Small nucleolar RNA SNORD17: a 243-nucleotide RNA from Vombatus ursinus. The family has 19 seed sequences and 1,015 matches in Rfam 15.1. Gene Ontology terms of the family: RNA processing and nucleolus. NCBI's taxonomy places the organism under Eukaryota, Tetrapoda, Metatheria, Diprotodontia, Vombatus. The match comes from Rfam's covariance-model search (122 bits).
[Rfam]
RNA sequence: GUGAAAUGAUGAUGAAGUUUAUCCAUUCUCUGAAUGUGUUGCUCUGCUCUUCCUGCAGCCCUCAGCUCCUGUUCUGGGAACUCUGAGUUAUGUAACCUCCAGACGCCCUCCAGGCUUGCAGCGUUCUGCUGUACUUGGCAGGGGUGUGUGGUGGUCUUACUAGUAGGAAGAGAUGGUGUCAGCAGGGGCGGAACCCAAUCAGUUUAAGGGCCCACUCAAGACGAAUGACUGAUGUCUGAUCAC
Numbered sequence: 001g002u003g004a005a006a007u008g009a010u011g012a013u014g015a016a017g018u019u020u021a022u023c024c025a026u027u028c029u030c031u032g033a034a035u036g037u038g039u040u041g042c043u044c045u046g047c048u049c050u051u052c053c054u055g056c057a058g059c060c061c062u063c064a065g066c067u068c069c070u071g072u073u074c075u076g077g078g079a080a081c082u083c084u085g086a087g088u089u090a091u092g093u094a095a096c097c098u099c100c101a102g103a104c105g106c107c108c109u110c111c112a113g114g115c116u117u118g119c120a121g122c123g124u125u126c127u128g129c130u131g132u133a134c135u136u137g138g139c140a141g142g143g144g145u146g147u148g149u150g151g152u153g154g155u156c157u158u159a160c161u162a163g164u165a166g167g168a169a170g171a172g173a174u175g176g177u178g179u180c181a182g183c184a185g186g187g188g189c190g191g192a193a194c195c196c197a198a199u200c201a202g203u204u205u206a207a208g209g210g211c212c213c214a215c216u217c218a219a220g221a222c223g224a225a226u227g228a229c230u231g232a233u234g235u236c237u238g239a240u241c242a243c
Stems, first nucleotide, its partner, number of pairs: 010242004017235002020232001024227005030220002034216001035214001038183004042178001044176003048172001050169007058089001060087001062085001065081001067079004092160003095155003105145002107142001111138001113136002117133007185213003194209002
About the family: The snoRNA HBI-43 belongs to the C/D family of snoRNAs, guiding 2'O-ribose methylation at position U3797 of the 28S rRNA. Pseudouridylation in position U3797 is predicted to be guided by the H/ACA snoRNA ACA48.